[Rfam]
RNA: SAM riboswitch aptamer (S box leader)
Organism: Rhodococcus sp. P1Y
RNA sequence: ACACCAUCCAGAGCGACCGAGAGACCUGGCUCUACGACGUCGCAGCAACCCCCCGCGGGGCUAGUGAAACGCGGGUGAGGGUGCUACCGCCGGGACCGAUGGAGG
Numbered sequence: 001a002c003a004c005c006a007u008c009c010a011g012a013g014c015g016a017c018c019g020a021g022a023g024a025c026c027u028g029g030c031u032c033u034a035c036g037a038c039g040u041c042g043c044a045g046c047a048a049c050c051c052c053c054c055g056c057g058g059g060g061c062u063a064g065u066g067a068a069a070c071g072c073g074g075g076u077g078a079g080g081g082u083g084c085u086a087c088c089g090c091c092g093g094g095a096c097c098g099a100u101g102g103a104g105g
Base pairs, nucleotide, nucleotide: 002104004102005101006100007099008098013043014042015041016040017039021032022031023030026093027092028091029090044085045084046083047082049081050080051077053075054074089097